[Rfam]
RNA sequence: ACAAACAGCUGAUCAGCUGUUUGUCCGCUCAGUGUGCUAGUCUGGACGCUCCCCUGCCGACAUCAAAGCCCUUUGUCGGCAGCCCCGUUAUUCCUCGUGGGAUGAGGUUUAUCUGGGCUGCCGACAAAAGGCUUUGAUGUCGGCAGGGGGGCGUCCAGACUAGCGCGCUGAGCGGACAAAAAGCUCCAGACUAGCGCGCUGAGCGGACAAACAGCUGAUCAG
Numbered sequence: 001a002c003a004a005a006c007a008g009c010u011g012a013u014c015a016g017c018u019g020u021u022u023g024u025c026c027g028c029u030c031a032g033u034g035u036g037c038u039a040g041u042c043u044g045g046a047c048g049c050u051c052c053c054c055u056g057c058c059g060a061c062a063u064c065a066a067a068g069c070c071c072u073u074u075g076u077c078g079g080c081a082g083c084c085c086c087g088u089u090a091u092u093c094c095u096c097g098u099g100g101g102a103u104g105a106g107g108u109u110u111a112u113c114u115g116g117g118c119u120g121c122c123g124a125c126a127a128a129a130g131g132c133u134u135u136g137a138u139g140u141c142g143g144c145a146g147g148g149g150g151g152c153g154u155c156c157a158g159a160c161u162a163g164c165g166c167g168c169u170g171a172g173c174g175g176a177c178a179a180a181a182a183g184c185u186c187c188a189g190a191c192u193a194g195c196g197c198g199c200u201g202a203g204c205g206g207a208c209a210a211a212c213a214g215c216u217g218a219u220c221a222g
Stems, first nucleotide, its partner, number of pairs: 010221005017214013032199002036164004041159008049150005056144007070131002072128001075125011087113001165197006
The family of this 222-nucleotide sequence from Pelodiscus sinensis is "Small nucleolar RNA SNORD17". It scores 48 bits against the family's covariance model. Its family is annotated with RNA processing and nucleolus in the Gene Ontology. From the family's description: The snoRNA HBI-43 belongs to the C/D family of snoRNAs, guiding 2'O-ribose methylation at position U3797 of the 28S rRNA. Pseudouridylation in position U3797 is predicted to be guided by the H/ACA snoRNA ACA48. For this family Rfam cites "RNomics: an experimental approach that identifies 201 candidates for novel, small, non-messenger RNAs in mouse" (Huttenhofer et al., EMBO J, 2001). Rfam classes the family as a C/D-box small nucleolar RNA.